[Rfam]
RNA: Purine riboswitch aptamer
RNA sequence: GCUAUAAUCAUUGAGUCUUAUCGUAUAUCUUCACAGGGAACAGCGUGAAGAGUUUCUACCCAAUGGCUAUAUAUUGGACUACGAUAGAAUUCAAGGGACAA
Numbered sequence: 001g002c003u004a005u006a007a008u009c010a011u012u013g014a015g016u017c018u019u020a021u022c023g024u025a026u027a028u029c030u031u032c033a034c035a036g037g038g039a040a041c042a043g044c045g046u047g048a049a050g051a052g053u054u055u056c057u058a059c060c061c062a063a064u065g066g067c068u069a070u071a072u073a074u075u076g077g078a079c080u081a082c083g084a085u086a087g088a089a090u091u092c093a094a095g096g097g098a099c100a101a
Stems, first nucleotide, its partner, number of pairs: 018087008029050006060077006